[Rfam]
RNA: Small nucleolar RNA Z279/snoR105/snoR108
RNA sequence: GGGAUGUGAUGAGUGGUCAAUGCUUGCAUUAAAAUAUGCGAGAAGGGCGUUCCAGCUCAGCCUGGUUACGACAAUUUGGGCGCCCUCACUUAUACCAAUCUGAUCCC
Numbered sequence: 001g002g003g004a005u006g007u008g009a010u011g012a013g014u015g016g017u018c019a020a021u022g023c024u025u026g027c028a029u030u031a032a033a034a035u036a037u038g039c040g041a042g043a044a045g046g047g048c049g050u051u052c053c054a055g056c057u058c059a060g061c062c063u064g065g066u067u068a069c070g071a072c073a074a075u076u077u078g079g080g081c082g083c084c085c086u087c088a089c090u091u092a093u094a095c096c097a098a099u100c101u102g103a104u105c106c107c
Base pairs, nucleotide, nucleotide: 001107002106003105004104014097015096016095017094023042024041025040026039027038044086045085046084047083048082049081050080051079063078064077065075066074